Shown here is a 130-nucleotide RNA sequence, a member of the family "EFASI RNA".
The sequence is in the family's curated seed alignment.
[Rfam]
RNA sequence: CUGAAGAUACCUGAGGCAGGCUUUCAGCCGGAGGGGAUUACCCUGCUGAUGCAGGCGGUUGCACCGAGUGCAUAACCGAUAUCCCCGCCAUACCUCAACCGCUGUCGCUCCGGCGCACAGGUAUUGUUCC
Numbered sequence: 001c002u003g004a005a006g007a008u009a010c011c012u013g014a015g016g017c018a019g020g021c022u023u024u025c026a027g028c029c030g031g032a033g034g035g036g037a038u039u040a041c042c043c044u045g046c047u048g049a050u051g052c053a054g055g056c057g058g059u060u061g062c063a064c065c066g067a068g069u070g071c072a073u074a075a076c077c078g079a080u081a082u083c084c085c086c087g088c089c090a091u092a093c094c095u096c097a098a099c100c101g102c103u104g105u106c107g108c109u110c111c112g113g114c115g116c117a118c119a120g121g122u123a124u125u126g127u128u129c130c
Stems, first nucleotide, its partner, number of pairs: 003129003006125007017031001019029003033086004042055005056078004060072005